[Rfam]
RNA sequence: CAAGUAGAGUAUGUAAUCGCAGCUGACAUAUGCCGAAAGGCGUCAGGUGAGGAAAGUCCGGGCUUCGCAGGGCUGGAUGCCGGAUAACGUCCGGUGGAGGUGACUCCAAGGAUAGUGCAACAGAGAUAUACCGCCUGCCGCAUAUGUGGCGGGUAAGGGUGGAAAGGCAGUGUAAGAGACUACCGUUUUUCUGGUAACAGAAGAAGCCAUGUAAACCCCAUCCGAAGCAAGACCGAAUAAAAGCGAUGUGGCUGCCCGUCACGCUUUUAGGUGGGUCGCUUGAGACUGCUGGCGACAGCAGUUUUAGAUAGAUGAUUACACACGACAUAACCCGGCUUAUCGCUCUGCUUGUAUG
Number, nucleotide and partner (000 for none) at each position: 001c351002a350003a349004g348005u347006a346007g345008a344009g343010u342011a340012u320013g319014u318015a317016a316017u315018c314019g000020c049021a048022g000023c046024u045025g044026a043027c042028a000029u000030a000031u000032g000033c000034c000035g000036a000037a000038a000039g000040g000041c000042g027043u026044c025045a024046g023047g000048u021049g020050a000051g000052g000053a000054a338055a337056g336057u000058c335059c334060g333061g332062g331063c227064u226065u225066c224067g000068c000069a000070g257071g256072g255073c254074u000075g223076g222077a221078u220079g219080c094081c093082g092083g091084a090085u000086a000087a000088c000089g000090u084091c083092c082093g081094g080095u109096g107097g106098a105099g104100g000101u000102g000103a000104c099105u098106c097107c096108a000109a095110g218111g217112a000113u000114a000115g216116u215117g212118c211119a210120a000121c000122a000123g000124a000125g000126a000127u000128a000129u000130a000131c158132c157133g154134c153135c152136u151137g150138c149139c148140g147141c146142a000143u000144a000145u000146g141147u140148g139149g138150c137151g136152g135153g134154u133155a000156a000157g132158g131159g000160u000161g000162g000163a000164a000165a000166g184167g183168c000169a181170g180171u179172g000173u000174a000175a000176g000177a000178g000179a171180c170181u169182a000183c167184c166185g207186u205187u204188u203189u202190u201191c200192u199193g198194g000195u000196a000197a000198c193199a192200g191201a190202a189203g188204a187205a186206g000207c185208c000209a000210u119211g118212u117213a000214a000215a116216c115217c111218c110219c079220a078221u077222c076223c075224g066225a065226a064227g063228c000229a000230a000231g277232a276233c275234c274235g000236a000237a000238u000239a268240a267241a266242a265243g264244c263245g000246a000247u000248g262249u261250g260251g259252c258253u000254g073255c072256c071257c070258g252259u251260c250261a249262c248263g244264c243265u242266u241267u240268u239269a000270g000271g000272u000273g000274g234275g233276u232277c231278g000279c000280u000281u000282g000283a000284g303285a302286c301287u300288g299289c298290u297291g296292g000293c000294g000295a000296c291297a290298g289299c288300a287301g286302u285303u284304u000305u000306a000307g000308a000309u000310a000311g000312a000313u000314g018315a017316u016317u015318a014319c013320a012321c000322a000323c000324g000325a000326c000327a000328u000329a000330a000331c062332c061333c060334g059335g058336c056337u055338u054339a000340u011341c000342g010343c009344u008345c007346u006347g005348c004349u003350u002351g001352u000353a000354u000355g000